[Rfam]
RNA sequence: CACGGUCUGACGCAGUAACCGCCGGAAGGCGGCGAAGCAGUACCUAUGCAGAAGGAGAGCUUAUUCCCGGCAAAAGCCAAAACAAUCCGCCGGUGCAGACGGCUGGACGCUGCUUGCAUGGCAGGCCGAUGUGCGCGGGCCUGUUUCAUAGCCGGACUGCCACGAGGGUAGAACGCGCACCCGACAAUCAUCCCUUACGGCGGGGGGCCG
Numbered sequence: 001c002a003c004g005g006u007c008u009g010a011c012g013c014a015g016u017a018a019c020c021g022c023c024g025g026a027a028g029g030c031g032g033c034g035a036a037g038c039a040g041u042a043c044c045u046a047u048g049c050a051g052a053a054g055g056a057g058a059g060c061u062u063a064u065u066c067c068c069g070g071c072a073a074a075a076g077c078c079a080a081a082a083c084a085a086u087c088c089g090c091c092g093g094u095g096c097a098g099a100c101g102g103c104u105g106g107a108c109g110c111u112g113c114u115u116g117c118a119u120g121g122c123a124g125g126c127c128g129a130u131g132u133g134c135g136c137g138g139g140c141c142u143g144u145u146u147c148a149u150a151g152c153c154g155g156a157c158u159g160c161c162a163c164g165a166g167g168g169u170a171g172a173a174c175g176c177g178c179a180c181c182c183g184a185c186a187a188u189c190a191u192c193c194c195u196u197a198c199g200g201c202g203g204g205g206g207g208c209c210g
Base pairs, nucleotide, nucleotide: 004045005044019032020031021030022029023028069078070077071076086204087203088202089201090200091199092198094197095160096159097158098157100154101153102152103151104150109117110116120145121144122143123142124141125140126139164196165195166194167193168192171182
Dot-bracket structure: ...((.............(((((....)))))...........)).......................(((....))).......(((((((.(((((.(((((....((.....))..(((((((............)))))))....)))))..))))...(((((..(..........).........)))))))))))))......
A member of the RNA family "RT-2 RNA", 210 nucleotides long.